[Rfam]
RNA sequence: GGCGAUAAAUGGGCGACGCAAUAAACCUUUCGGACCCGGGGGCGGUACCCGGCGCCUCCACCCGAGCCCGCGGCCUGAUCGACAUGAUCAGACAUUCGGCCGCGGGCUCCGGCGGGGGCGAAAUAGCUUCGACGAGGGCGUAAAGGUCUUUCUUUCGCUCGGCAUGGUUCCGCCGUUAUCGGGCCGAAACUAUAGUUGCCAAUGACAACUAUGCUCCGGUUGCUGUCGCCGCGUAA
Numbered sequence: 001g002g003c004g005a006u007a008a009a010u011g012g013g014c015g016a017c018g019c020a021a022u023a024a025a026c027c028u029u030u031c032g033g034a035c036c037c038g039g040g041g042g043c044g045g046u047a048c049c050c051g052g053c054g055c056c057u058c059c060a061c062c063c064g065a066g067c068c069c070g071c072g073g074c075c076u077g078a079u080c081g082a083c084a085u086g087a088u089c090a091g092a093c094a095u096u097c098g099g100c101c102g103c104g105g106g107c108u109c110c111g112g113c114g115g116g117g118g119c120g121a122a123a124u125a126g127c128u129u130c131g132a133c134g135a136g137g138g139c140g141u142a143a144a145g146g147u148c149u150u151u152c153u154u155u156c157g158c159u160c161g162g163c164a165u166g167g168u169u170c171c172g173c174c175g176u177u178a179u180c181g182g183g184c185c186g187a188a189a190c191u192a193u194a195g196u197u198g199c200c201a202a203u204g205a206c207a208a209c210u211a212u213g214c215u216c217c218g219g220u221u222g223c224u225g226u227c228g229c230c231g232c233g234u235a236a
Stems, first nucleotide, its partner, number of pairs: 001159005015148003026138003030135003036052005053120007160175004

Annotation:
Shown here is a 236-nucleotide RNA sequence from Methylobrevis albus, a member of the family "permuted transfer-messenger RNA". Rfam's curators write: Bacterial tmRNA, also known as 10Sa RNA or SsrA, is named for its dual tRNA and mRNA-like properties.